Shown here is a 77-nucleotide sequence from Scleropages formosus, a member of the family "mir-193 microRNA precursor family". Taxonomically the source falls in Scleropages (Eukaryota, Bilateria, Vertebrata, Actinopteri). Rfam links the family to the GO terms RISC complex and miRNA-mediated post-transcriptional gene silencing.

RNA sequence: GUCUGAGGUUGGGUCUUUGCGGGCAAGGUGAGUGCUGUAAGGUCUCUCAACUGGCCUACAAAGUCCCAGCUUUGGAC
Dot-bracket structure: ..((((((.((((.(((((.((((.((.((.................)).)).)))).))))).)))).))))))..

For this family Rfam cites "Small RNA expression and strain specificity in the rat" (Linsen et al., BMC Genomics, 2010). The match comes from Rfam's covariance-model search (66 bits).